Shown here is an 87-nucleotide sequence from Bacillus thermotolerans, a member of the family "BsrC". From the family's description: The 301 nucleotide sequence from Kouji Nakamura has been trimmed to a highly conserved ~85 nucleotide long core to form this family. The family's RNA type in Rfam is small RNA. Rfam 15.1 lists 572 matches to the family in 553 species. The family's consensus secondary structure was predicted with CMfinder.
Nucleotides: 087
Stems, first nucleotide, its partner, number of pairs: 037066001040063002043058006
Number, partner (000 for none) and nucleotide at each position: 001000a002000c003000g004000a005000a006000c007000c008000u009000a010000a011000a012000c013000g014000a015000c016000c017000u018000a019000a020000g021000c022000c023000c024000u025000u026000c027000c028000u029000g030000c031000u032000c033000u034000u035000a036000g037066g038000u039000c040063c041062u042000u043058g044057c045056g046055g047054c048053u049000c050000c051000g052000a053048a054047g055046c056045c057044g058043c059000u060000c061000c062041a063040g064000u065000g066037u067000g068000a069000u070000u071000a072000a073000g074000c075000c076000u077000u078000c079000u080000a081000u082000c083000a084000g085000a086000a087000a
Source information:
A reference for the family is Saito et al. (2008), "Novel small RNA-encoding genes in the intergenic regions of Bacillus subtilis", Gene.